[Rfam]
RNA: Small nucleolar RNA U83B
RNA sequence: GCUGUUCUGUGAUGAGGCCCUGGAAUGAGCGCUGGCACAGCGCCCGAGUCAGACUGCGGAAGUGUUCCUCGCUGCCUUCCUCCUGAGGACGGU
Numbered sequence: 001g002c003u004g005u006u007c008u009g010u011g012a013u014g015a016g017g018c019c020c021u022g023g024a025a026u027g028a029g030c031g032c033u034g035g036c037a038c039a040g041c042g043c044c045c046g047a048g049u050c051a052g053a054c055u056g057c058g059g060a061a062g063u064g065u066u067c068c069u070c071g072c073u074g075c076c077u078u079c080c081u082c083c084u085g086a087g088g089a090c091g092g093u
Base pairs, nucleotide, nucleotide: 001093002092003091004090005089